[Rfam]
RNA sequence: CUUAAAUUUACAACCAAGGAUGGGAAUGAUGGAACCAUGUAUCCCGAAACCAUCCCGCCAAUACUCCUGCGCGCGUCAUGACUAACAGGUCAUGGGGUGUGAAGUACAGGUAGAUUCGACAGAACGAAGGCUGGAGCCAAUUUUUUAAAAAAGGUAUGCCAACGGAUAUGUCGCGCGGCUGAAAA
Numbered sequence: 001c002u003u004a005a006a007u008u009u010a011c012a013a014c015c016a017a018g019g020a021u022g023g024g025a026a027u028g029a030u031g032g033a034a035c036c037a038u039g040u041a042u043c044c045c046g047a048a049a050c051c052a053u054c055c056c057g058c059c060a061a062u063a064c065u066c067c068u069g070c071g072c073g074c075g076u077c078a079u080g081a082c083u084a085a086c087a088g089g090u091c092a093u094g095g096g097g098u099g100u101g102a103a104g105u106a107c108a109g110g111u112a113g114a115u116u117c118g119a120c121a122g123a124a125c126g127a128a129g130g131c132u133g134g135a136g137c138c139a140a141u142u143u144u145u146u147a148a149a150a151a152a153g154g155u156a157u158g159c160c161a162a163c164g165g166a167u168a169u170g171u172c173g174c175g176c177g178g179c180u181g182a183a184a185a
Stems, first nucleotide, its partner, number of pairs: 018055006031045002034042001056177003066110004070101005076095008117173005125164002129160002136155003143151002
The family of this 185-nucleotide RNA sequence from Paenibacillus sp. HGF7 is "Group II catalytic intron D1-D4-5". The match comes from Rfam's covariance-model search (82 bits). For this family Rfam cites "Control of branch-site choice by a group II intron" (Chu et al., EMBO J, 2001). Lineage of the source: Bacteria > Bacillota > Caryophanales > Paenibacillaceae > Paenibacillus. From the family's description: Group II introns are found in rRNA, tRNA and mRNA of organelles in fungi, plants and protists, and also in mRNA in bacteria. Rfam links the family to the GO term Group II intron splicing.